[Rfam]
RNA: U4 spliceosomal RNA
Organism: Populus alba
RNA sequence: AUCUUUGCGCUUGGGGCAAUGACGCAGCUAGUGAGGUUCUAACCGAGGCGCGUCAAUUGCUGGUUGAAAACUAUUUCCAAACCCCCUCUUAGGCACUGGGUUUGGCCCAGUGCCUUCGAGAAUUUCUGGAAGGGCUCCCUUAGGGG
Numbered sequence: 001a002u003c004u005u006u007g008c009g010c011u012u013g014g015g016g017c018a019a020u021g022a023c024g025c026a027g028c029u030a031g032u033g034a035g036g037u038u039c040u041a042a043c044c045g046a047g048g049c050g051c052g053u054c055a056a057u058u059g060c061u062g063g064u065u066g067a068a069a070a071c072u073a074u075u076u077c078c079a080a081a082c083c084c085c086c087u088c089u090u091a092g093g094c095a096c097u098g099g100g101u102u103u104g105g106c107c108c109a110g111u112g113c114c115u116u117c118g119a120g121a122a123u124u125u126c127u128g129g130a131a132g133g134g135c136u137c138c139c140u141u142a143g144g145g146g
Stems, first nucleotide, its partner, number of pairs: 021054005027049003035044003086120003091115011